[Rfam]
RNA sequence: AAUUUAUAGACGAAGAGGCGAGAGAACAGGCUCAUUGACCCUCUGGCAACCAUCUGCAUAGAAAGGUGCCACGUCCUGCCCAACAAAGGGAAAAUAUAAAUU
Numbered sequence: 001a002a003u004u005u006a007u008a009g010a011c012g013a014a015g016a017g018g019c020g021a022g023a024g025a026a027c028a029g030g031c032u033c034a035u036u037g038a039c040c041c042u043c044u045g046g047c048a049a050c051c052a053u054c055u056g057c058a059u060a061g062a063a064a065g066g067u068g069c070c071a072c073g074u075c076c077u078g079c080c081c082a083a084c085a086a087a088g089g090g091a092a093a094a095u096a097u098a099a100a101u102u
Stems, first nucleotide, its partner, number of pairs: 001102008014044005022033003027078004045070004050066002053062003074093001079090003
Dot-bracket structure: ((((((((.....(((((...(((..[[[[)))......)))))((((.((.(((....)))..))))))...(]]]](((......)))..).))))))))